[Rfam]
RNA sequence: UGGUAGAUGCACCCUGAUAACAACGGCGCCUUUUAUUUUAUAGAUGGCGCCUUUUUAU
Numbered sequence: 001u002g003g004u005a006g007a008u009g010c011a012c013c014c015u016g017a018u019a020a021c022a023a024c025g026g027c028g029c030c031u032u033u034u035a036u037u038u039u040a041u042a043g044a045u046g047g048c049g050c051c052u053u054u055u056u057a058u
Base pairs, nucleotide, nucleotide: 002013003012004011026050027049028048029047030046032044033043034042035041036040
Nitrogen stress-induced RNA 1: a 58-nucleotide RNA from Dulcicalothrix desertica.
For this family Rfam cites "Heterocyst-specific transcription of NsiR1, a non-coding RNA encoded in a tandem array of direct repeats in cyanobacteria" (Ionescu et al., J Mol Biol, 2010).
Pairs were carried over by alignment from the consensus structure.